[Rfam]
RNA sequence: GCUCGAGUUUCUCUUCAUUGUCGCAUAAAUCUUUCGCCUUUUACUAAAGAUUUCCGUGGAGGGGAACUUUUCGAGUGACCUGUAUUUUUGGGUGCUCUGCUCACUGCAGAGCU
Numbered sequence: 001g002c003u004c005g006a007g008u009u010u011c012u013c014u015u016c017a018u019u020g021u022c023g024c025a026u027a028a029a030u031c032u033u034u035c036g037c038c039u040u041u042u043a044c045u046a047a048a049g050a051u052u053u054c055c056g057u058g059g060a061g062g063g064g065a066a067c068u069u070u071u072c073g074a075g076u077g078a079c080c081u082g083u084a085u086u087u088u089u090g091g092g093u094g095c096u097c098u099g100c101u102c103a104c105u106g107c108a109g110a111g112c113u
Stems, first nucleotide, its partner, number of pairs: 003074004007067011027053008092113001094112006

This 113-nucleotide RNA sequence from Carassius auratus belongs to the Rfam family "U5 spliceosomal RNA". Rfam classes the family as a spliceosomal small nuclear RNA. Pairs were carried over by alignment from the consensus structure, which is taken from published work.